Glycine riboswitch aptamer: a 102-nucleotide RNA from Alkalithermobacter paradoxus.
RNA sequence: AAGAAAGAUAUGGGAGAGAGCUUUAAGCCGCCGAAGGGACAAAUCUUAUUCUAGCCCAUGGAAUAAGGUGAAAUUCUCAGGCAAAAGAACCAUAUCCGGACA
Numbered sequence: 001a002a003g004a005a006a007g008a009u010a011u012g013g014g015a016g017a018g019a020g021c022u023u024u025a026a027g028c029c030g031c032c033g034a035a036g037g038g039a040c041a042a043a044u045c046u047u048a049u050u051c052u053a054g055c056c057c058a059u060g061g062a063a064u065a066a067g068g069u070g071a072a073a074u075u076c077u078c079a080g081g082c083a084a085a086a087g088a089a090c091c092a093u094a095u096c097c098g099g100a101c102a
Stems, first nucleotide, its partner, number of pairs: 007096007020028003030082003033078002037076003043069011
The organism belongs to Alkalithermobacter, within Bacteria.